[Rfam]
Nucleotides: 175
Stems, first nucleotide, its partner, number of pairs: 022040003041085010058075005089175003
Number, partner (000 for none) and nucleotide at each position: 001000c002000c003000g004000u005000c006000u007000g008000u009000u010000g011000g012000g013000g014000a015000g016000u017000a018000g019000c020000c021000u022040g023039c024038u025000u026000c027000c028000a029000u030000c031000c032000c033000c034000c035000g036000g037000a038024a039023g040022c041085g042084c043083c044082c045081g046080u047079a048078u049077c050076a051000a052000c053000a054000u055000a056000c057000u058075c059074g060073g061072u062071g063000a064000c065000c066000a067000c068000g069000u070000g071062c072061a073060c074059c075058g076050u077049g078048g079047u080046g081045c082044g083043g084042g085041c086000a087000g088000c089175c090174a091173u092000a093000u094000c095000a096000g097000g098000u099000u100000g101000g102000c103000g104000a105000g106000a107000c108000c109000a110000g111000g112000g113000u114000a115000c116000g117000u118000c119000a120000a121000c122000g123000c124000g125000c126000a127000u128000g129000u130000c131000g132000g133000c134000c135000g136000c137000g138000u139000g140000a141000g142000g143000u144000a145000u146000c147000u148000c149000u150000a151000c152000g153000u154000c155000c156000g157000u158000c159000c160000g161000g162000c163000c164000u165000g166000g167000a168000a169000c170000u171000c172000c173091a174090u175089g
The family of this 175-nucleotide RNA sequence from Pigmentiphaga aceris is "Manganese Mn2+ riboswitch aptamer (yybP-ykoY)". Its family is annotated with manganese ion binding in the Gene Ontology. The literature on the family includes a 2004 paper in Proc Natl Acad Sci U S A by Barrick et al., "New RNA motifs suggest an expanded scope for riboswitches in bacterial genetic control".